Background:
rpsB sRNA: a 108-nucleotide RNA sequence from Notoacmeibacter marinus. Rfam classes the family as a small RNA. The source organism's lineage runs through Bacteria, Pseudomonadati, Pseudomonadota, Notoacmeibacteraceae and Notoacmeibacter. The family's consensus secondary structure is taken from published work. The family has 4 seed sequences and 245 matches in Rfam 15.1.
RNA sequence: CACACGUGAGCUUCGGGCUUUGCGGGGAGACAUCCCGUUCCAGUCCACCGGUGGCAGUGUUCCUGCCUUUGGCUCGCGGAGGUUCAACCGGGAAAGGAUAUGAGAUGG
Numbered sequence: 001c002a003c004a005c006g007u008g009a010g011c012u013u014c015g016g017g018c019u020u021u022g023c024g025g026g027g028a029g030a031c032a033u034c035c036c037g038u039u040c041c042a043g044u045c046c047a048c049c050g051g052u053g054g055c056a057g058u059g060u061u062c063c064u065g066c067c068u069u070u071g072g073c074u075c076g077c078g079g080a081g082g083u084u085c086a087a088c089c090g091g092g093a094a095a096g097g098a099u100a101u102g103a104g105a106u107g108g
Stems, first nucleotide, its partner, number of pairs: 001081001003079001005078007015046002023037002026035001053067005